Overview
Rfam assigns this 82-nucleotide sequence from Nitrosococcus halophilus to the family "Group II catalytic intron D1-D4-1". A reference for the family is Bonen and Vogel (2001), "The ins and outs of group II introns", Trends Genet. Rfam links the family to the GO term Group II intron splicing. It scores 50 bits against the family's covariance model.
RNA sequence: UGGUGGAACUGAGAGGUUUCAUACUGCGGUGCAGGAAUCAGCAGAAGGCAUAGUAGGUGGAUAGGGCGAUUCGCCGAAGGCC
Numbered sequence: 001u002g003g004u005g006g007a008a009c010u011g012a013g014a015g016g017u018u019u020c021a022u023a024c025u026g027c028g029g030u031g032c033a034g035g036a037a038u039c040a041g042c043a044g045a046a047g048g049c050a051u052a053g054u055a056g057g058u059g060g061a062u063a064g065g066g067c068g069a070u071u072c073g074c075c076g077a078a079g080g081c082c
Base pairs, nucleotide, nucleotide: 003022004021005020006019007018008017009016010015038045039044047082048081049080056075057074058073059072060071061070